[Rfam]
Y RNA: a 102-nucleotide sequence from Sapajus apella.

RNA sequence: GGUUGAUCUGAGUGGAGUGGUAUUUUCAGCUAAUUGAUCACACCCAGUUACAGAUUACUUUGUUCCUUCUUCACUCCCACAGCUUCACUUGACUAGCUUUUU
Numbered sequence: 001g002g003u004u005g006a007u008c009u010g011a012g013u014g015g016a017g018u019g020g021u022a023u024u025u026u027c028a029g030c031u032a033a034u035u036g037a038u039c040a041c042a043c044c045c046a047g048u049u050a051c052a053g054a055u056u057a058c059u060u061u062g063u064u065c066c067u068u069c070u071u072c073a074c075u076c077c078c079a080c081a082g083c084u085u086c087a088c089u090u091g092a093c094u095a096g097c098u099u100u101u102u
Stems, first nucleotide, its partner, number of pairs: 001098005007092002010090002014086002017080004028064003032060002

Record summary: For this family Rfam cites "Conserved features of Y RNAs: a comparison of experimentally derived secondary structures" (Teunissen et al., Nucleic Acids Res, 2000). The source organism's lineage runs through Eukaryota, Primates, Haplorrhini, Simiiformes and Sapajus. Y RNAs are components of the Ro ribonucleoprotein particle (Ro RNP), in association with Ro60 and La proteins. The Y RNAs and Ro60 and La proteins are well conserved, but the function of the Ro RNP is not known. In humans the RNA component can be one of four small RNAs -- hY1, hY3, hY4 and hY5. These small RNAs are predicted to fold into a conserved secondary structure containing three stem structures. The largest of the four, hY1, contains an additional hairpin. This family includes a significant number of annotated pseudogenes and the model is expected to discriminate poorly between real and Y RNA related pseudogenes. The match comes from Rfam's covariance-model search (60 bits). By type it is a non-coding RNA gene.